[Rfam]
RNA sequence: AAGAAAUGAUGCUAACUAAGAUUGGUCUUAGUGUUGAAGUGAAGACGCUCAGAUCCAACUCUGAUCUUGCUUUAAGU
Numbered sequence: 001a002a003g004a005a006a007u008g009a010u011g012c013u014a015a016c017u018a019a020g021a022u023u024g025g026u027c028u029u030a031g032u033g034u035u036g037a038a039g040u041g042a043a044g045a046c047g048c049u050c051a052g053a054u055c056c057a058a059c060u061c062u063g064a065u066c067u068u069g070c071u072u073u074a075a076g077u
Stems, first nucleotide, its partner, number of pairs: 001068004
RNA: Small nucleolar RNA SNORD19
Organism: Tupaia belangeri